The record is a 133-nucleotide sequence from Sorex araneus, which matches "Small nucleolar RNA SNORA13" in Rfam. Lineage of the source: Eukaryota > Tetrapoda > Eutheria > Eulipotyphla > Sorex. ACA13 is a member of the H/ACA class of snoRNA that guide the sites of modification of uridines to pseudouridines. Gene Ontology terms of the family: nucleolus and RNA processing. Pairs were carried over by alignment from the consensus structure, which was predicted with CMfinder. The sequence is in the family's curated seed alignment.
RNA sequence: CGCCUUUGUGUUGCCCAUUUACUUUGGAAGCUAGUGAAUGUGGUGUCAAGAAAGGCGUAAAGUAAGCCCUUGGCAGGGUUUUCCUGCUUGUGACCCUGCUGUCUCAGGCACAGGAACUGCACAAGGAAUAGGA
Numbered sequence: 001c002g003c004c005u006u007u008g009u010g011u012u013g014c015c016c017a018u019u020u021a022c023u024u025u026g027g028a029a030g031c032u033a034g035u036g037a038a039u040g041u042g043g044u045g046u047c048a049a050g051a052a053a054g055g056c057g058u059a060a061a062g063u064a065a066g067c068c069c070u071u072g073g074c075a076g077g078g079u080u081u082u083c084c085u086g087c088u089u090g091u092g093a094c095c096c097u098g099c100u101g102u103c104u105c106a107g108g109c110a111c112a113g114g115a116a117c118u119g120c121a122c123a124a125g126g127a128a129u130a131g132g133a
Base pairs, nucleotide, nucleotide: 002056003055004054005053006052007051009048010047012045013044014043015042016040017039018038019037020036021035022034023033068126069125070124071123073120074119075118076117082115083114084113085112086111088108089107092103093102